[Rfam]
RNA: tRNA
RNA sequence: GGAGAUUUACCCAAGUGGCUGAAGGGGGCGCUCUCGAAAAGCGUUAGGUGGUUAUCCACGCGUGGGUUCAAAUCCCACAAUCUCCG
Numbered sequence: 001g002g003a004g005a006u007u008u009a010c011c012c013a014a015g016u017g018g019c020u021g022a023a024g025g026g027g028g029c030g031c032u033c034u035c036g037a038a039a040a041g042c043g044u045u046a047g048g049u050g051g052u053u054a055u056c057c058a059c060g061c062g063u064g065g066g067u068u069c070a071a072a073u074c075c076c077a078c079a080a081u082c083u084c085c086g
Base pairs, nucleotide, nucleotide: 001085002084003083004082005081006080007079010026011025012024028044029043030042031041032040062078063077064076065075066074